[Rfam]
RNA sequence: UCUAGUUACUAUGGGGUAAUCAGCAUUACAUAUAUCAGAACCACUACUGAUUAAGCACUAGAAACUUUCAUAGAAGUUAUAUGUGUCAGAUAUAAUAUUAGUUGAAUAUAUAUGGGCGAUACUGUUGACAUCGGGAUGUCGUAAAACAAACGUACUGUAUUGAAUAUAUGGGCUAUAUACUGAUUGCAAGAGUUUAAGAUAAAAAAAUUGUGGGAAUUUACUAAUCAAACUGGCACUUUGGUUAGUAUUUU
Numbered sequence: 001u002c003u004a005g006u007u008a009c010u011a012u013g014g015g016g017u018a019a020u021c022a023g024c025a026u027u028a029c030a031u032a033u034a035u036c037a038g039a040a041c042c043a044c045u046a047c048u049g050a051u052u053a054a055g056c057a058c059u060a061g062a063a064a065c066u067u068u069c070a071u072a073g074a075a076g077u078u079a080u081a082u083g084u085g086u087c088a089g090a091u092a093u094a095a096u097a098u099u100a101g102u103u104g105a106a107u108a109u110a111u112a113u114g115g116g117c118g119a120u121a122c123u124g125u126u127g128a129c130a131u132c133g134g135g136a137u138g139u140c141g142u143a144a145a146a147c148a149a150a151c152g153u154a155c156u157g158u159a160u161u162g163a164a165u166a167u168a169u170g171g172g173c174u175a176u177a178u179a180c181u182g183a184u185u186g187c188a189a190g191a192g193u194u195u196a197a198g199a200u201a202a203a204a205a206a207a208u209u210g211u212g213g214g215a216a217u218u219u220a221c222u223a224a225u226c227a228a229a230c231u232g233g234c235a236c237u238u239u240g241g242u243u244a245g246u247a248u249u250u251u
Stems, first nucleotide, its partner, number of pairs: 001062006034051005041213004063194006076096007083236007097184006219247011